[Rfam]
Notes:
This 304-nucleotide sequence from Nicotiana tabacum belongs to the Rfam family "Plant signal recognition particle RNA". The family's consensus secondary structure is taken from published work. Its family is annotated with SRP-dependent cotranslational protein targeting to membrane, signal sequence recognition and signal recognition particle, endoplasmic reticulum targeting in the Gene Ontology.
RNA sequence: GCCGAGCUCAUUAACAAGAGCUUGUAACCUAUGUAGGGGCAUUAAUGUGGUGGAAUGUUGGGCCUGUCCAAAAGGCAGGACUUGGGUUGCUAAUUUAUAGCCUGCCCUCUCCAAGCAUAGAGUUGGGCCACGUAGUCCAUGCGAAGGCUUGGGUUGCUUGGCUCCUAUAGUGGGGCAGACCGCGCGAGGCUGGUUUCACAGGGCAACGAACAGCUCCCGCUUUGAGCAGUGGAAGGAUAACGGGUCGAUGCUACUCAGGCCCAACAAAUGUCUGAUGGGUUGCUCUAAUCAAACCACCAUUUUU
Numbered sequence: 001g002c003c004g005a006g007c008u009c010a011u012u013a014a015c016a017a018g019a020g021c022u023u024g025u026a027a028c029c030u031a032u033g034u035a036g037g038g039g040c041a042u043u044a045a046u047g048u049g050g051u052g053g054a055a056u057g058u059u060g061g062g063c064c065u066g067u068c069c070a071a072a073a074g075g076c077a078g079g080a081c082u083u084g085g086g087u088u089g090c091u092a093a094u095u096u097a098u099a100g101c102c103u104g105c106c107c108u109c110u111c112c113a114a115g116c117a118u119a120g121a122g123u124u125g126g127g128c129c130a131c132g133u134a135g136u137c138c139a140u141g142c143g144a145a146g147g148c149u150u151g152g153g154u155u156g157c158u159u160g161g162c163u164c165c166u167a168u169a170g171u172g173g174g175g176c177a178g179a180c181c182g183c184g185c186g187a188g189g190c191u192g193g194u195u196u197c198a199c200a201g202g203g204c205a206a207c208g209a210a211c212a213g214c215u216c217c218c219g220c221u222u223u224g225a226g227c228a229g230u231g232g233a234a235g236g237a238u239a240a241c242g243g244g245u246c247g248a249u250g251c252u253a254c255u256c257a258g259g260c261c262c263a264a265c266a267a268a269u270g271u272c273u274g275a276u277g278g279g280u281u282g283c284u285c286u287a288a289u290c291a292a293a294c295c296a297c298c299a300u301u302u303u304u
Base pairs, nucleotide, nucleotide: 001040002039003038004023005022006021007020008019009018011016028037029036030035044303045302047300048299049298050297051296052295053294056291057290058288059287060286061284062283063282068278069277070276073273074272075271076270077269078262079261081259082258083257084256085255087253089251091250092249098247100245101244102243103242104241106236107235110233111232112231113230115227116226118224119223120222121221122220123219125164126163127162128161129160130159132157133156134155135154136153137152138151139150141148142147165170172217173216174215175214176213183208184207190201191200192199
Dot-bracket structure: (((((((((.(....).))))))....(((....))))))...((.(((((((..((((((((....(((..(((((((.(((((.(.(.((.....(.(((((.((..((((.((.((((((.((((((.((((((((.((....)).)))))))).))))))(....).(((((......((.....(((......))).....))....))))).)))))).))..)))).))....))))).).))).).))))).))......)))))..)))...))).))).))..))))))).)).
Taxonomically the source falls in Nicotiana (Eukaryota, Euphyllophyta, Magnoliopsida, Pentapetalae). A search with the family's covariance model found it, with a score of 238 bits.